[Rfam]
Shown here is a 99-nucleotide sequence from Geotrypetes seraphini, a member of the family "mir-210 microRNA precursor family". Pairs were carried over by alignment from the consensus structure, which was predicted with WAR.
RNA sequence: UCCGGGAGCAGACGAGCCACUGACUAACGCACAUUGUGCUGCUGCAGACCCUCCACUGUGCGUGUGACAGCGGCUAAGCUGCUUCUCGGCUGUCGCCAG
Number, nucleotide and partner (000 for none) at each position: 001u000002c000003c000004g000005g085006g084007a083008g082009c081010a080011g079012a000013c000014g000015a075016g074017c073018c072019a000020c070021u069022g068023a000024c066025u064026a063027a000028c062029g061030c060031a059032c058033a057034u000035u055036g054037u000038g000039c000040u000041g000042c000043u000044g000045c000046a000047g000048a000049c000050c000051c000052u000053c000054c036055a035056c000057u033058g032059u031060g030061c029062g028063u026064g025065u000066g024067a000068c022069a021070g020071c000072g018073g017074c016075u015076a000077a000078g000079c011080u010081g009082c008083u007084u006085c005086u000087c000088g000089g000090c000091u000092g000093u000094c000095g000096c000097c000098a000099g000
On this family, see Cai et al., Proc Natl Acad Sci U S A 2005: "Kaposi's sarcoma-associated herpesvirus expresses an array of viral microRNAs in latently infected cells".